The family of this 257-nucleotide sequence from Furculomyces boomerangus is "Protozoan signal recognition particle RNA". Pairs were carried over by alignment from the consensus structure, which is taken from published work. Its Rfam clan is "SRP clan". The organism belongs to Furculomyces, within Eukaryota. The family's RNA type in Rfam is non-coding RNA gene.
[Rfam]
RNA sequence: ACGCCUGCAAACCCUGCUUAUGGGGAGACUCAGAAGAUGUGGUAGAAAUUGGUUUUCUCCAGAAAGCUUUGCUUGAAAAGCGUAUUGGUUCUGUCCGCCUGAAGUUUGGUGUUGGCAAUGGCAUCCUAGCGUAGGCUUGUGGGUGUUCAUGGCUAUUAAAGAUCUGGGGAAUGCGCGAGGCUGGCAACAGAGCAGCGAAAACUGGACGCACUUAAUCGGUCAGGGGAUUGCAGAACCCGCGCGUGGGAAGUUCAUUC
Numbered sequence: 001a002c003g004c005c006u007g008c009a010a011a012c013c014c015u016g017c018u019u020a021u022g023g024g025g026a027g028a029c030u031c032a033g034a035a036g037a038u039g040u041g042g043u044a045g046a047a048a049u050u051g052g053u054u055u056u057c058u059c060c061a062g063a064a065a066g067c068u069u070u071g072c073u074u075g076a077a078a079a080g081c082g083u084a085u086u087g088g089u090u091c092u093g094u095c096c097g098c099c100u101g102a103a104g105u106u107u108g109g110u111g112u113u114g115g116c117a118a119u120g121g122c123a124u125c126c127u128a129g130c131g132u133a134g135g136c137u138u139g140u141g142g143g144u145g146u147u148c149a150u151g152g153c154u155a156u157u158a159a160a161g162a163u164c165u166g167g168g169g170a171a172u173g174c175g176c177g178a179g180g181c182u183g184g185c186a187a188c189a190g191a192g193c194a195g196c197g198a199a200a201a202c203u204g205g206a207c208g209c210a211c212u213u214a215a216u217c218g219g220u221c222a223g224g225g226g227a228u229u230g231c232a233g234a235a236c237c238c239g240c241g242c243g244u245g246g247g248a249a250g251u252u253c254a255u256u257c
Stems, first nucleotide, its partner, number of pairs: 012025004071257001074254004087237008095226002098224005104216003108212005113155004118150004122145005128137003157161001163206005172199001174197003181190003